[Rfam]
RNA sequence: GAAUCAUUUGAUGAGAGACACUGCAACAAUAUCAUGGAUACUAUUCCAUGAUUUGUCGUAUUUAAAUCUAUGUUGAUU
Numbered sequence: 001g002a003a004u005c006a007u008u009u010g011a012u013g014a015g016a017g018a019c020a021c022u023g024c025a026a027c028a029a030u031a032u033c034a035u036g037g038a039u040a041c042u043a044u045u046c047c048a049u050g051a052u053u054u055g056u057c058g059u060a061u062u063u064a065a066a067u068c069u070a071u072g073u074u075g076a077u078u
Base pairs, nucleotide, nucleotide: 001078002077004076005075006074036047037046038045
This 78-nucleotide RNA sequence from Actinidia chinensis belongs to the Rfam family "Small nucleolar RNA Z199". From the family's description: snoZ199 is a C/D box small nucleolar RNA, which acts as a methylation guide RNA for sites on 18S and 25S rRNA. Rice snoZ199 is reported to be homologous to Arabidopsis snoR13. Its family is annotated with RNA processing and nucleolus in the Gene Ontology. The source organism's lineage runs through Eukaryota, Gunneridae, Pentapetalae, Ericales and Actinidia chinensis. It scores 57 bits against the family's covariance model. On this family, see Chen et al., Nucleic Acids Res 2003: "The high diversity of snoRNAs in plants: identification and comparative study of 120 snoRNA genes from Oryza sativa". By type it is a C/D-box small nucleolar RNA.